[Rfam]
RNA sequence: ACAGUACAAACUGAACAGGCCGGAGCGACGCGCUCGGAGCCGGGUCACACAUGUGACAGUGGAAGGAUCACCCACGGGACAGUA
Numbered sequence: 001a002c003a004g005u006a007c008a009a010a011c012u013g014a015a016c017a018g019g020c021c022g023g024a025g026c027g028a029c030g031c032g033c034u035c036g037g038a039g040c041c042g043g044g045u046c047a048c049a050c051a052u053g054u055g056a057c058a059g060u061g062g063a064a065g066g067a068u069c070a071c072c073c074a075c076g077g078g079a080c081a082g083u084a
Stems, first nucleotide, its partner, number of pairs: 010083004016078001018041003022035002044057005059075004

The family of this 84-nucleotide RNA from Butyricicoccus porcorum is "NiCo (Nickel/Cobalt) riboswitch aptamer". The base pairs follow the family's consensus structure, which is taken from published work. Clan: NiCo_riboswitches. The organism belongs to Butyricicoccus, within Bacteria. A search with the family's covariance model found it, with a score of 65 bits.